[Rfam]
RNA: MIR824 microRNA precursor family
RNA sequence: CUCGAGUUCUCUCUCAUGUCUAGACCAUUUGUGAGAAGGGAUUUUCUAUUUGCAUCAUUCACUCCCACCAAUCUCUAAGUAUGCAAUAAGUAUUAUUCUCACUUAAGAAAAAAGCAAUCCUAUUAUUUGAGAUGCUUCUACAGCUUGAAAUAUGUUGUUUAGUUCUUUAUAUGGUUACCAAAACGUUAAGAAACCAUGUGAACAUUCCCCCAAAAAUUAAAGGUCUAGCCUGUAGGUCACAGUCAUUAGAGCCACUCUCACUUCUCGUUUUUUUUUUUGUCAAACCACUUCUCGUUUAAAAUGUGUUACUUCUUCCAUCAAAAUCUGAUCCUUGAGGAGUUAGGUCCAUAAGUAAGUACACAGAGUGAACACAUAACUUGAUAAAAUCAUUUACACUUUGGACAAUUUCCCAUGAGAUGCCAAACUUUUCAAUGGAGUUUGAGUUUUUCAAUGAUAGCUAAAAUUUGUAUCUAGCACUACUUAUAGCUACACUAGUAUACUUGAUAAUAUUUUGAGAGGAGUGGGGGAGAUGCUGUGUUAUUAUUCCCUUCUCAUCGAUGGUCUAGAUGUGUGAGGUGACUCUCAUGGAAG
Numbered sequence: 001c002u003c004g005a006g007u008u009c010u011c012u013c014u015c016a017u018g019u020c021u022a023g024a025c026c027a028u029u030u031g032u033g034a035g036a037a038g039g040g041a042u043u044u045u046c047u048a049u050u051u052g053c054a055u056c057a058u059u060c061a062c063u064c065c066c067a068c069c070a071a072u073c074u075c076u077a078a079g080u081a082u083g084c085a086a087u088a089a090g091u092a093u094u095a096u097u098c099u100c101a102c103u104u105a106a107g108a109a110a111a112a113a114g115c116a117a118u119c120c121u122a123u124u125a126u127u128u129g130a131g132a133u134g135c136u137u138c139u140a141c142a143g144c145u146u147g148a149a150a151u152a153u154g155u156u157g158u159u160u161a162g163u164u165c166u167u168u169a170u171a172u173g174g175u176u177a178c179c180a181a182a183a184c185g186u187u188a189a190g191a192a193a194c195c196a197u198g199u200g201a202a203c204a205u206u207c208c209c210c211c212a213a214a215a216a217u218u219a220a221a222g223g224u225c226u227a228g229c230c231u232g233u234a235g236g237u238c239a240c241a242g243u244c245a246u247u248a249g250a251g252c253c254a255c256u257c258u259c260a261c262u263u264c265u266c267g268u269u270u271u272u273u274u275u276u277u278u279g280u281c282a283a284a285c286c287a288c289u290u291c292u293c294g295u296u297u298a299a300a301a302u303g304u305g306u307u308a309c310u311u312c313u314u315c316c317a318u319c320a321a322a323a324u325c326u327g328a329u330c331c332u333u334g335a336g337g338a339g340u341u342a343g344g345u346c347c348a349u350a351a352g353u354a355a356g357u358a359c360a361c362a363g364a365g366u367g368a369a370c371a372c373a374u375a376a377c378u379u380g381a382u383a384a385a386a387u388c389a390u391u392u393a394c395a396c397u398u399u400g401g402a403c404a405a406u407u408u409c410c411c412a413u414g415a416g417a418u419g420c421c422a423a424a425c426u427u428u429u430c431a432a433u434g435g436a437g438u439u440u441g442a443g444u445u446u447u448u449c450a451a452u453g454a455u456a457g458c459u460a461a462a463a464u465u466u467g468u469a470u471c472u473a474g475c476a477c478u479a480c481u482u483a484u485a486g487c488u489a490c491a492c493u494a495g496u497a498u499a500c501u502u503g504a505u506a507a508u509a510u511u512u513u514g515a516g517a518g519g520a521g522u523g524g525g526g527g528a529g530a531u532g533c534u535g536u537g538u539u540a541u542u543a544u545u546c547c548c549u550u551c552u553c554a555u556c557g558a559u560g561g562u563c564u565a566g567a568u569g570u571g572u573g574a575g576g577u578g579a580c581u582c583u584c585a586u587g588g589a590a591g
Base pairs, nucleotide, nucleotide: 002589003588004582005581006580007579008578010576011575012574013573015571016570017569018568019567020566021565022564023563024562025561026560027559028558029557031555032554033553034552035551036550037549038548039547040546041545043543052533053532054531055530056529064524066523067522068521074520075519076518
Dot-bracket structure: .(((((((.((((.(((((((((((((((.(((((((((((.(........(((((.......(.(((.....(((.........................................................................................................................................................................................................................................................................................................................................................................................................................................................)))))))....))))).........).))))))))))).))))))))))))))).)))).))))).....))..